RNA sequence: UUGGUUUGUCCUAAGUCAAACUUAUUCAAUUUUGACCAAAUUUAUAGAAAAAUAUAAAAAUAGCUAUAUUACCAAAUAUAUGUACUAUCAAAAUAUAUUCUAUGAUGGUUUCAAUGGAACAAAUUUGAUAUCAUAGAUAUUGUUAUAUUUUUCUAUAAGCUGUCAAACAUGGACAAAUUUGACUUAGGACAAACCAUA
Numbered sequence: 001u002u003g004g005u006u007u008g009u010c011c012u013a014a015g016u017c018a019a020a021c022u023u024a025u026u027c028a029a030u031u032u033u034g035a036c037c038a039a040a041u042u043u044a045u046a047g048a049a050a051a052a053u054a055u056a057a058a059a060a061u062a063g064c065u066a067u068a069u070u071a072c073c074a075a076a077u078a079u080a081u082g083u084a085c086u087a088u089c090a091a092a093a094u095a096u097a098u099u100c101u102a103u104g105a106u107g108g109u110u111u112c113a114a115u116g117g118a119a120c121a122a123a124u125u126u127g128a129u130a131u132c133a134u135a136g137a138u139a140u141u142g143u144u145a146u147a148u149u150u151u152u153c154u155a156u157a158a159g160c161u162g163u164c165a166a167a168c169a170u171g172g173a174c175a176a177a178u179u180u181g182a183c184u185u186a187g188g189a190c191a192a193a194c195c196a197u198a
Base pairs, nucleotide, nucleotide: 005193006192007191008190009189011187012186013185014184015183016182017181018180019179020178022176023175025173026172031167032166033165034164035163045155046154047153048152049151050150051149052148055145056144057143059141060140061139062138064136065135066134067133073127074126075125076124077123
Record summary:
Rfam assigns this 198-nucleotide sequence from Dichanthelium oligosanthes to the family "MIR1435 microRNA precursor family". The family's consensus secondary structure was predicted with RNAalifold. Lineage of the source: Eukaryota > Streptophytina > Magnoliopsida > commelinids > Dichanthelium. Its family is annotated with RISC complex and miRNA-mediated post-transcriptional gene silencing in the Gene Ontology.